[Rfam]
Background:
serC leader: a 52-nucleotide RNA from Paracoccus seriniphilus. A search with the family's covariance model found it, with a score of 64 bits. This family is a putative regulatory RNA structure that is found upstream of the serC-serA operon in some alpha-proteobacteria. The final stem of the structure overlaps the ribosome binding site of the serC reading frame. Gene Ontology term of the family: regulation of gene expression.

RNA sequence: CGGCGGGACACCCCUCCCCAACGAGGGGCUUUUAGCUGGAAGGCUGAGUCAA
Numbered sequence: 001c002g003g004c005g006g007g008a009c010a011c012c013c014c015u016c017c018c019c020a021a022c023g024a025g026g027g028g029c030u031u032u033u034a035g036c037u038g039g040a041a042g043g044c045u046g047a048g049u050c051a052a
Base pairs, nucleotide, nucleotide: 011028012027013026014025015024016023032047033046034045035044036043037042
The organism belongs to Paracoccus, within Bacteria. A reference for the family is Corbino et al. (2005), "Evidence for a second class of S-adenosylmethionine riboswitches and other regulatory RNA motifs in alpha-proteobacteria", Genome Biol.